[Rfam]
RNA sequence: GCCGGGAAGAGGAAGAAGGAGAGGGCCUAAGAGUAGUGGGAAUGGGAACACGGAGGAAAGCCAUUCCUGAAAGUUUUCACCUCCGGUAACGCAGGUGGAAGCUUUGGUUUGGUGUUUCCCGGUGCCUCCCAUUCCUAUCGUUCUUAAGCGCUCCUUCCUUUUCUUUUUGGCU
Number, nucleotide and partner (000 for none) at each position: 001g000002c000003c000004g000005g000006g000007a000008a000009g163010a162011g161012g160013a159014a000015g157016a156017a155018g000019g000020a000021g153022a152023g151024g000025g000026c148027c000028u146029a145030a144031g143032a142033g141034u140035a000036g000037u137038g136039g135040g134041a133042a132043u131044g130045g129046g128047a127048a000049c124050a123051c122052g000053g120054a000055g119056g118057a000058a117059a116060g115061c114062c000063a000064u000065u000066c000067c000068u000069g000070a000071a000072a000073g000074u000075u000076u000077u000078c000079a000080c000081c000082u000083c000084c000085g000086g000087u000088a000089a000090c000091g000092c000093a000094g000095g000096u000097g000098g000099a000100a000101g000102c000103u000104u000105u000106g000107g000108u000109u000110u000111g000112g000113u000114g061115u060116u059117u058118c056119c055120c053121g000122g051123u050124g049125c000126c000127u047128c046129c045130c044131a043132u042133u041134c040135c039136u038137a037138u000139c000140g034141u033142u032143c031144u030145u029146a028147a000148g026149c000150g000151c023152u022153c021154c000155u017156u016157c015158c000159u013160u012161u011162u010163c009164u000165u000166u000167u000168u000169g000170g000171c000172u000
Rfam assigns this 172-nucleotide sequence from Paspalum vaginatum to the family "MIR2118 microRNA precursor family".
The family has 7 seed sequences and 2,377 matches in Rfam 15.1.
The literature on the family includes a 2008 paper in Genome Res by Zhu et al., "A diverse set of microRNAs and microRNA-like small RNAs in developing rice grains".